The family of this 507-nucleotide RNA sequence from Streptomyces cinnamoneus is "Saccharopolyspora sRNA 350".
On this family, see Liu et al., PLoS One 2013: "Prediction and characterization of small non-coding RNAs related to secondary metabolites in Saccharopolyspora erythraea".
Pairs were carried over by alignment from the consensus structure, which was predicted with RNAfold.
Gene Ontology term of the family: regulation of secondary metabolite biosynthetic process.
It is annotated as an antisense RNA.

RNA sequence: CGCACGGUGAAGCCCCAGGUCGCGUCCGGCUCCAGGGGCGCCCGGUCGCCGAAGUAGUCGCCGUCGCCCAGGAUGCCGAGCGUCGUCUCGUCCCCGUAUUCGCCGGGGCCCGUCUUGGUGAGCUUGCCGUGGGCGAUGAGGAAGAUCUCGUCGGCGGGCCGGCCCGCUUCGACGAGCACGUCGCCCGCGGCGUACUCCCGCUGGACGAACGCGUUCGCCAGGGCCUCCAGGGUGUCGGUGUCCCCGAAGUCGCGCAGCAGCGGCAGCUCGCCCAGCUCGGCCGGGAUGACCCGCACCUCGGUGCCGGUCGAGACGAACUCGACGCGGCCGUCGCCCAGGGUGUAGACCAGCCGCCGGUUGACCCGGUAGGUGCCGGCCGAGACCUGCACCCAGGGCAGGACGCGCAGCAGCCAGCGGGAGGAGAUGCCGCGCAUCUGGGGCACGGACUUGGUGGUCGUCGCGAGCUGGCGCGCCGCGCCCGUGCCCAGGCUCAGCUGUGUGUCGGCC
Number, nucleotide and partner (000 for none) at each position: 001c000002g000003c000004a000005c000006g390007g389008u388009g387010a000011a385012g384013c000014c000015c381016c000017a000018g000019g328020u327021c000022g325023c324024g000025u322026c321027c000028g319029g318030c000031u316032c315033c000034a000035g000036g000037g000038g000039c312040g308041c307042c306043c000044g000045g305046u000047c303048g302049c301050c300051g299052a298053a000054g000055u229056a000057g227058u000059c000060g224061c223062c222063g000064u220065c000066g110067c000068c108069c000070a000071g000072g000073a000074u000075g103076c000077c102078g101079a100080g099081c000082g097083u096084c000085g094086u000087c000088u000089c000090g000091u000092c000093c000094c085095c000096g083097u082098a000099u080100u079101c078102g077103c075104c000105g000106g000107g000108g068109c000110c066111c000112g000113u000114c000115u000116u000117g219118g218119u217120g216121a000122g214123c213124u000125u000126g212127c211128c000129g210130u209131g206132g000133g000134c203135g202136a000137u000138g199139a000140g197141g000142a000143a196144g195145a000146u000147c000148u000149c192150g191151u000152c000153g000154g188155c187156g186157g185158g184159c000160c183161g000162g177163c000164c000165c174166g173167c000168u000169u000170c000171g000172a000173c166174g165175a000176g000177c162178a000179c000180g000181u000182c000183g160184c158185c157186c156187g155188c154189g000190g000191c150192g149193u000194a000195c144196u143197c140198c000199c138200g000201c000202u135203g134204g000205a000206c131207g000208a000209a130210c129211g127212c126213g123214u122215u000216c120217g119218c118219c117220a064221g000222g062223g061224c060225c000226u000227c057228c000229a055230g000231g296232g000233u000234g000235u000236c000237g000238g000239u000240g290241u289242c288243c000244c000245c285246g000247a000248a000249g282250u000251c280252g000253c279254g278255c000256a277257g276258c275259a000260g271261c270262g269263g000264c000265a000266g000267c000268u000269c262270g261271c260272c000273c000274a000275g258276c257277u256278c254279g253280g251281c000282c249283g000284g000285g245286a000287u000288g242289a241290c240291c000292c000293g000294c000295a000296c231297c000298u052299c051300g050301g049302u048303g047304c000305c045306g042307g041308u040309c000310g000311a000312g039313a000314c000315g032316a031317a000318c029319u028320c000321g026322a025323c000324g023325c022326g000327g020328c019329c342330g341331u340332c339333g000334c000335c000336c000337a000338g000339g332340g331341u330342g329343u000344a000345g000346a000347c000348c000349a000350g000351c379352c000353g377354c376355c375356g374357g373358u000359u000360g000361a371362c370363c369364c000365g000366g000367u000368a000369g363370g362371u361372g000373c357374c356375g355376g354377c353378c000379g351380a000381g015382a000383c000384c012385u011386g000387c009388a008389c007390c006391c431392a000393g000394g428395g427396c426397a425398g000399g000400a000401c421402g000403c418404g000405c416406a000407g415408c000409a000410g000411c000412c000413a000414g000415c407416g405417g000418g403419a000420g000421g401422a000423g000424a000425u397426g396427c395428c394429g000430c000431g391432c000433a000434u000435c000436u000437g476438g000439g474440g473441c000442a000443c470444g469445g000446a000447c000448u464449u463450g000451g461452u460453g000454g000455u000456c000457g000458u000459c000460g452461c451462g000463a449464g448465c000466u000467g000468g000469c444470g443471c000472g000473c440474c439475g000476c437477g506478c505479c000480c501481g000482u000483g000484c499485c000486c497487a496488g495489g000490c000491u000492c000493a000494g000495c488496u487497g486498u000499g484500u000501g480502u000503c000504g000505g478506c477507c000